[Rfam]
Description:
Rfam assigns this 147-nucleotide sequence from Corticibacter populi to the family "radC RNA". Pairs were carried over by alignment from the consensus structure, which is taken from published work. It scores 119 bits against the family's covariance model.
RNA sequence: ACGCUGCUGCCAUGUUCCGCUGAUCUCGGUCAGCGACAUGCCCAGGUAGCCGGAUCUUCAAGGCUACGGCGCGGUUCCGACCGCGUUGAUCAUCCCAGUUCGCACCGGCAUCCAUGCGCGAACGCCCAUCGGCAACGAUGGUGAUGC
Numbered sequence: 001a002c003g004c005u006g007c008u009g010c011c012a013u014g015u016u017c018c019g020c021u022g023a024u025c026u027c028g029g030u031c032a033g034c035g036a037c038a039u040g041c042c043c044a045g046g047u048a049g050c051c052g053g054a055u056c057u058u059c060a061a062g063g064c065u066a067c068g069g070c071g072c073g074g075u076u077c078c079g080a081c082c083g084c085g086u087u088g089a090u091c092a093u094c095c096c097a098g099u100u101c102g103c104a105c106c107g108g109c110a111u112c113c114a115u116g117c118g119c120g121a122a123c124g125c126c127c128a129u130c131g132g133c134a135a136c137g138a139u140g141g142u143g144a145u146g147c
Stems, first nucleotide, its partner, number of pairs: 011040004016035001019034006046067006053091004068087007118147003126141006